Rfam assigns this 373-nucleotide sequence from a Nitrospinota bacterium to the family "Bacterial RNase P class A". It is annotated as a ribozyme. Pairs were carried over by alignment from the consensus structure, which is taken from published work.
RNA sequence: GAAGUAAACUGGGUGAUCGCUGUUUUGGCCCUUGGGUCGAGAGAGAGGAAAGUCCGGGCUCCACAGGGCAGGAUACUCCGUAACUCGGAGUGAGGGUGACCUUAAGGAAAGUGCCGCAGAAAAUACACAGCCUACCCGACUGUCAAUAGUCGGCGGCAAUGGUGAAAAGGCGAGGUAAGAGCUCACCAGUACUGCUGGCGACAGCGGUAGCUUGGUAAACCCUAUCCGGAGCAAGAUCAAAUAGGAAAGUGGGUUGCCCGCCCUAGACUUUCGGGUUGAUUGCUUGAGCCUGUUGGCAACAGCAGGCCUAGAUUGAUGGUUACCGCUUCAUUUAAUAUGAAGAACAAAACCCGGCUUAUGGUUUACUUCGGCU
Numbered sequence: 001g002a003a004g005u006a007a008a009c010u011g012g013g014u015g016a017u018c019g020c021u022g023u024u025u026u027g028g029c030c031c032u033u034g035g036g037u038c039g040a041g042a043g044a045g046a047g048g049a050a051a052g053u054c055c056g057g058g059c060u061c062c063a064c065a066g067g068g069c070a071g072g073a074u075a076c077u078c079c080g081u082a083a084c085u086c087g088g089a090g091u092g093a094g095g096g097u098g099a100c101c102u103u104a105a106g107g108a109a110a111g112u113g114c115c116g117c118a119g120a121a122a123a124u125a126c127a128c129a130g131c132c133u134a135c136c137c138g139a140c141u142g143u144c145a146a147u148a149g150u151c152g153g154c155g156g157c158a159a160u161g162g163u164g165a166a167a168a169g170g171c172g173a174g175g176u177a178a179g180a181g182c183u184c185a186c187c188a189g190u191a192c193u194g195c196u197g198g199c200g201a202c203a204g205c206g207g208u209a210g211c212u213u214g215g216u217a218a219a220c221c222c223u224a225u226c227c228g229g230a231g232c233a234a235g236a237u238c239a240a241a242u243a244g245g246a247a248a249g250u251g252g253g254u255u256g257c258c259c260g261c262c263c264u265a266g267a268c269u270u271u272c273g274g275g276u277u278g279a280u281u282g283c284u285u286g287a288g289c290c291u292g293u294u295g296g297c298a299a300c301a302g303c304a305g306g307c308c309u310a311g312a313u314u315g316a317u318g319g320u321u322a323c324c325g326c327u328u329c330a331u332u333u334a335a336u337a338u339g340a341a342g343a344a345c346a347a348a349a350c351c352c353g354g355c356u357u358a359u360g361g362u363u364u365a366c367u368u369c370g371g372c373u
Base pairs, nucleotide, nucleotide: 001369002368003367004366005365006364007363008362009361010360011359012324013323014322015321016320017319018318020045021044023042024041025040026039027038028037050357051356052355054354055353056352057351058350059231060230061229062228066259067258068257069256071227072226073225074224075223076090077089078088079087080086091105092103093102094101095100106222107221111220112219113216114215115214128161129160130157131156132155136153137152138151139150140149141148169187170186172184173183174182189211190209191208192207193206194205195204196203197202235281236280237279238278245272246271247270248269249268251263252262253261254260288307289306290305291304292303293302294301295300
About this RNA: A search with the family's covariance model found it, with a score of 301 bits.